RNA sequence: AAGCCAGCCAACAGAUCUGCUUGCCUGAAUGUGUUACUGCAGAGAUCUUAAAAGCUGGCCAUAGUUAAAGCCAUCUUAUAAGCCCUAAGGACACUGAAGUCAUUAAGGUUCCUGAAAAUGGCUAUAACA
Numbered sequence: 001a002a003g004c005c006a007g008c009c010a011a012c013a014g015a016u017c018u019g020c021u022u023g024c025c026u027g028a029a030u031g032u033g034u035u036a037c038u039g040c041a042g043a044g045a046u047c048u049u050a051a052a053a054g055c056u057g058g059c060c061a062u063a064g065u066u067a068a069a070g071c072c073a074u075c076u077u078a079u080a081a082g083c084c085c086u087a088a089g090g091a092c093a094c095u096g097a098a099g100u101c102a103u104u105a106a107g108g109u110u111c112c113u114g115a116a117a118a119u120g121g122c123u124a125u126a127a128c129a
Stems, first nucleotide, its partner, number of pairs: 003059005016043005070122004082109003086105003090101003

Small nucleolar RNA SNORA33: a 129-nucleotide RNA sequence from Propithecus coquereli. Lineage of the source: Eukaryota > Eumetazoa > Tetrapoda > Mammalia > Propithecus. The family's RNA type in Rfam is H/ACA-box small nucleolar RNA. Its family is annotated with nucleolus and RNA processing in the Gene Ontology. The family has 28 seed sequences and 1,176 matches in Rfam 15.1. Rfam describes the family as follows. ACA33 is a member of the H/ACA class of snoRNA that guide the sites of modification of uridines to pseudouridines.